[Rfam]
RNA: Plastid-psbN 5UTR RNA
RNA sequence: UGCAACCCCCAUAAGUGGUGUAGUCUUUCAGUCCGGUGCUACUUUAUCAUAUUCUGAAUUC
Numbered sequence: 001u002g003c004a005a006c007c008c009c010c011a012u013a014a015g016u017g018g019u020g021u022a023g024u025c026u027u028u029c030a031g032u033c034c035g036g037u038g039c040u041a042c043u044u045u046a047u048c049a050u051a052u053u054c055u056g057a058a059u060u061c
Base pairs, nucleotide, nucleotide: 017045018044020042021041022040023039024038026036027035